[Rfam]
RNA sequence: UGUAAAUACCCUCCUUGGGUGUUUCCUCCCUAGACUUAGCCGCGCCACAAGCGCGGUUCUUUUUUUGUCAGGG
Number, nucleotide and partner (000 for none) at each position: 001u000002g000003u000004a000005a000006a000007u000008a020009c019010c018011c017012u000013c000014c000015u000016u000017g011018g010019g009020u008021g000022u000023u000024u000025c000026c000027u000028c000029c000030c000031u000032a000033g000034a000035c000036u000037u000038a058039g057040c056041c055042g054043c053044g052045c051046c000047a000048c000049a000050a000051g045052c044053g043054c042055g041056g040057u039058u038059c000060u000061u000062u000063u000064u000065u000066u000067g000068u000069c000070a000071g000072g000073g000

The family of this 73-nucleotide RNA sequence from Rhizobium sp. SEMIA4064 is "Makes More Granules Regulator RNA (mmgR)". The base pairs follow the family's consensus structure. Clan: suhB sRNA clan. It is annotated as a small RNA.